[Rfam]
RNA sequence: CCACCAAAAGUUUGUUAUUGGGGGAAGGUUUUUUUAAUGGCCUUUACCAACGUCAGGCUAUUUGGGAGAAUAAAGAAGGCCAUGCUCCACAGUGAGCUAUACCACUUAGUAUAGUUCAUUACUAUUUUGUGGCCUACAUC
Numbered sequence: 001c002c003a004c005c006a007a008a009a010g011u012u013u014g015u016u017a018u019u020g021g022g023g024g025a026a027g028g029u030u031u032u033u034u035u036a037a038u039g040g041c042c043u044u045u046a047c048c049a050a051c052g053u054c055a056g057g058c059u060a061u062u063u064g065g066g067a068g069a070a071u072a073a074a075g076a077a078g079g080c081c082a083u084g085c086u087c088c089a090c091a092g093u094g095a096g097c098u099a100u101a102c103c104a105c106u107u108a109g110u111a112u113a114g115u116u117c118a119u120u121a122c123u124a125u126u127u128u129g130u131g132g133c134c135u136a137c138a139u140c
Base pairs, nucleotide, nucleotide: 004065005064006063007062008061012060014058015057019052020051023048024047026045027042028041029040030039077135078134080132081131082130083129084128091120092119093118094117095116096115097114098113099112100111101110102109
This 140-nucleotide RNA sequence from Ovis aries belongs to the Rfam family "Small nucleolar RNA SNORA4".
The family has 7 seed sequences and 290 matches in Rfam 15.1.
Rfam classes the family as an H/ACA-box small nucleolar RNA.
The organism belongs to Ovis, within Eukaryota.
ACA4 is a member of the H/ACA class of snoRNA that guide the sites of modification of uridines to pseudouridines.